Record summary: The record is a 118-nucleotide sequence from Pseudonocardia asaccharolytica, which matches "Actinobacteria sRNA Ms_IGR-7" in Rfam. Lineage of the source: Bacteria > Bacillati > Pseudonocardiales > Pseudonocardia > Pseudonocardia asaccharolytica. Rfam classes the family as a small RNA. Rfam 15.1 lists 463 matches to the family in 194 species.
RNA sequence: AACGGAUGCCUUCUGGAUGGGACCGAUCGGACCUUCAGCAAGCCCUAUCGUCCCAAUUCAGGAGGGCAUUCGUGCGUUACGACGCACCCUCACCGACUCAUUUCGACGGUGCAUCCAG
Numbered sequence: 001a002a003c004g005g006a007u008g009c010c011u012u013c014u015g016g017a018u019g020g021g022a023c024c025g026a027u028c029g030g031a032c033c034u035u036c037a038g039c040a041a042g043c044c045c046u047a048u049c050g051u052c053c054c055a056a057u058u059c060a061g062g063a064g065g066g067c068a069u070u071c072g073u074g075c076g077u078u079a080c081g082a083c084g085c086a087c088c089c090u091c092a093c094c095g096a097c098u099c100a101u102u103u104c105g106a107c108g109g110u111g112c113a114u115c116c117a118g
Stems, first nucleotide, its partner, number of pairs: 002073012014060003018056001020054002024050004029045001032042001100114001102113001104111002